[Rfam]
RNA: Bacterial RNase P class A
RNA sequence: GCGGAUGGCUGGAUGACCGCGGGGUGGCAACACCGCGAGGAAAGUCCGGACUCCAUGAAGGAUGGUGCCGGGUAAUGCCCGGCCGGGGUAACCCGAGGGAAAGCGCCACAGAGAACAGACCGCCCGUUUACAGGUCGUGCAAACGAUACCGUGACGGGUAAGGGUGAAACGGUGGGGUAAGAGCCCACCGCGGCGGUGGUAACAUCGCUGGCAUGGCAAGCCCCACCAGGAGCAAUGCCAAAUAGGAACCUCACGCGGGGCAACUCGCAGGGCGGCUUCGGCCCAGAAGGUUCGGGUUGGCAGCUUGACCCUGUUGGUAACAGCAGGGCUAGAAGAAUGGUCAUCCAGCGUCGUGUAAUGCGGCGUGGACAAAAUCCGGCUUACAGGCCAUCCGCGCGU
Numbered sequence: 001g002c003g004g005a006u007g008g009c010u011g012g013a014u015g016a017c018c019g020c021g022g023g024g025u026g027g028c029a030a031c032a033c034c035g036c037g038a039g040g041a042a043a044g045u046c047c048g049g050a051c052u053c054c055a056u057g058a059a060g061g062a063u064g065g066u067g068c069c070g071g072g073u074a075a076u077g078c079c080c081g082g083c084c085g086g087g088g089u090a091a092c093c094c095g096a097g098g099g100a101a102a103g104c105g106c107c108a109c110a111g112a113g114a115a116c117a118g119a120c121c122g123c124c125c126g127u128u129u130a131c132a133g134g135u136c137g138u139g140c141a142a143a144c145g146a147u148a149c150c151g152u153g154a155c156g157g158g159u160a161a162g163g164g165u166g167a168a169a170c171g172g173u174g175g176g177g178u179a180a181g182a183g184c185c186c187a188c189c190g191c192g193g194c195g196g197u198g199g200u201a202a203c204a205u206c207g208c209u210g211g212c213a214u215g216g217c218a219a220g221c222c223c224c225a226c227c228a229g230g231a232g233c234a235a236u237g238c239c240a241a242a243u244a245g246g247a248a249c250c251u252c253a254c255g256c257g258g259g260g261c262a263a264c265u266c267g268c269a270g271g272g273c274g275g276c277u278u279c280g281g282c283c284c285a286g287a288a289g290g291u292u293c294g295g296g297u298u299g300g301c302a303g304c305u306u307g308a309c310c311c312u313g314u315u316g317g318u319a320a321c322a323g324c325a326g327g328g329c330u331a332g333a334a335g336a337a338u339g340g341u342c343a344u345c346c347a348g349c350g351u352c353g354u355g356u357a358a359u360g361c362g363g364c365g366u367g368g369a370c371a372a373a374a375u376c377c378g379g380c381u382u383a384c385a386g387g388c389c390a391u392c393c394g395c396g397c398g399u
Stems, first nucleotide, its partner, number of pairs: 001395010011384001012345007020037002023034004042382003046379005051232004059278003063228005068082005083097001084095004098223002103221002105217003120163002122159007171189006190212001191210008236302004246293006270284004309328008